[Rfam]
RNA sequence: CCAGUCGGCCGGGCAGUCGCGUCCCCGUGCGCAUCCUCGUGGUGCGCCGCGGGGCCGAGGAAAGUCCGGGCUCCUUCCGGCACGGUGGUGGGUAACGCCCACCCGGAGCGAUCCGCGGGACAGUGCCACAGAGAGCAGACCGCCGGCCCGUGACCUCGCGUCGCAGGGCCGGUAAGGGUGAAAGGGUGGUGUAAGAGACCACCGCGGUCCCGGUGACGGGACCGGCAGGGUAAACCCCACCGGGAGCAAGGCCAGACAGGGGACGCACGCAGGUCGCCGGACCGAGUCCCCGGGUAGGCCGCUGGAGAUCGUCGGCAACGGCGAUCCGAGAGGGAUGACUGCCGAUCACAGAACCCGGCUUACAGGCCGACUGGUCCG
Numbered sequence: 001c002c003a004g005u006c007g008g009c010c011g012g013g014c015a016g017u018c019g020c021g022u023c024c025c026c027g028u029g030c031g032c033a034u035c036c037u038c039g040u041g042g043u044g045c046g047c048c049g050c051g052g053g054g055c056c057g058a059g060g061a062a063a064g065u066c067c068g069g070g071c072u073c074c075u076u077c078c079g080g081c082a083c084g085g086u087g088g089u090g091g092g093u094a095a096c097g098c099c100c101a102c103c104c105g106g107a108g109c110g111a112u113c114c115g116c117g118g119g120a121c122a123g124u125g126c127c128a129c130a131g132a133g134a135g136c137a138g139a140c141c142g143c144c145g146g147c148c149c150g151u152g153a154c155c156u157c158g159c160g161u162c163g164c165a166g167g168g169c170c171g172g173u174a175a176g177g178g179u180g181a182a183a184g185g186g187u188g189g190u191g192u193a194a195g196a197g198a199c200c201a202c203c204g205c206g207g208u209c210c211c212g213g214u215g216a217c218g219g220g221a222c223c224g225g226c227a228g229g230g231u232a233a234a235c236c237c238c239a240c241c242g243g244g245a246g247c248a249a250g251g252c253c254a255g256a257c258a259g260g261g262g263a264c265g266c267a268c269g270c271a272g273g274u275c276g277c278c279g280g281a282c283c284g285a286g287u288c289c290c291c292g293g294g295u296a297g298g299c300c301g302c303u304g305g306a307g308a309u310c311g312u313c314g315g316c317a318a319c320g321g322c323g324a325u326c327c328g329a330g331a332g333g334g335a336u337g338a339c340u341g342c343c344g345a346u347c348a349c350a351g352a353a354c355c356c357g358g359c360u361u362a363c364a365g366g367c368c369g370a371c372u373g374g375u376c377c378g
Base pairs, nucleotide, nucleotide: 001374002373003372004371005370006369007368008367009366010365011363012343013342014341015340016339017338018337020057021056023054024053025052026051027050028049062361063360064359066358067357068356069355070354071246072245073244074243078279079278080277081276083242084241085240086239087238088102089101090100091099092098103117104115105114106113107112118237119236123235124234125231126230127229140177141176142173143172144171145170146169147168148167149166185203186202187201188200189199190198204226205224206223207222208221209220210219211218212217250300251299252298253297259291260290261289262288263287264286270284272282274280307326308325309324310323311322312321313320314319

Rfam assigns this 378-nucleotide RNA sequence from Brachybacterium endophyticum to the family "Bacterial RNase P class A". The family's RNA type in Rfam is ribozyme. The source organism's lineage runs through Bacteria, Bacillati, Micrococcales, Dermabacteraceae and Brachybacterium.